[Rfam]
RNA sequence: AAUAGGAGAAUGACAAAUCAUAUUUUUCUCCUUGAUUUUCAGUCUUUUCCUCCUAAAAAAUUCAAAUCCAACUAAAAAUGCUAAAAAUCAAGAGGAAAAAUUUUAUUUGUCAUUCUCCUAUU
Numbered sequence: 001a002a003u004a005g006g007a008g009a010a011u012g013a014c015a016a017a018u019c020a021u022a023u024u025u026u027u028c029u030c031c032u033u034g035a036u037u038u039u040c041a042g043u044c045u046u047u048u049c050c051u052c053c054u055a056a057a058a059a060a061u062u063c064a065a066a067u068c069c070a071a072c073u074a075a076a077a078a079u080g081c082u083a084a085a086a087a088u089c090a091a092g093a094g095g096a097a098a099a100a101u102u103u104u105a106u107u108u109g110u111c112a113u114u115c116u117c118c119u120a121u122u
Stems, first nucleotide, its partner, number of pairs: 001122018020103001022101006029094001031092009041082002045078004
A member of the RNA family "MIR7504 microRNA precursor family" from Gossypium mustelinum, 122 nucleotides long. The source organism's lineage runs through Eukaryota, Streptophytina, Embryophyta, Gunneridae and Gossypium. The family's consensus secondary structure was predicted with RNAalifold.